[Rfam]
RNA sequence: GUGUGAACUAGAGGAGCGGUUGUCAUCAGUACCUGCCGUGAGGUGCGGCGCCUGUGACCGGCAGGGAAAGGGACGUCCGCCGAAGUUUUCUCCCUGUGCCGCCGGGAGGGAAGACUGGGACCGGAUCCGAACAGGGACGGGACUGUCACGUUGCGCCAUAAGGGCGUUCGUGGAGCACUACGUGUCAC
Numbered sequence: 001g002u003g004u005g006a007a008c009u010a011g012a013g014g015a016g017c018g019g020u021u022g023u024c025a026u027c028a029g030u031a032c033c034u035g036c037c038g039u040g041a042g043g044u045g046c047g048g049c050g051c052c053u054g055u056g057a058c059c060g061g062c063a064g065g066g067a068a069a070g071g072g073a074c075g076u077c078c079g080c081c082g083a084a085g086u087u088u089u090c091u092c093c094c095u096g097u098g099c100c101g102c103c104g105g106g107a108g109g110g111a112a113g114a115c116u117g118g119g120a121c122c123g124g125a126u127c128c129g130a131a132c133a134g135g136g137a138c139g140g141g142a143c144u145g146u147c148a149c150g151u152u153g154c155g156c157c158a159u160a161a162g163g164g165c166g167u168u169c170g171u172g173g174a175g176c177a178c179u180a181c182g183u184g185u186c187a188c
Base pairs, nucleotide, nucleotide: 006183009180010179011178016080017079018078019077021075022074023073024072032065033064034063035062036061037060038059084116085115086114087113088112089111090110091109092108094106095105117144118143121140122139123138126135127134146173147172148171149170150169
Rfam assigns this 188-nucleotide RNA sequence from Melghirimyces profundicolus to the family "Lysine riboswitch aptamer". Gene Ontology term of the family: lysine biosynthetic process. The match comes from Rfam's covariance-model search (94 bits). Rfam's curators write: Riboswitches are metabolite binding domains within certain messenger RNAs that serve as precision sensors for their corresponding targets. The source organism's lineage runs through Bacteria, Bacillati, Caryophanales, Thermoactinomycetaceae and Melghirimyces.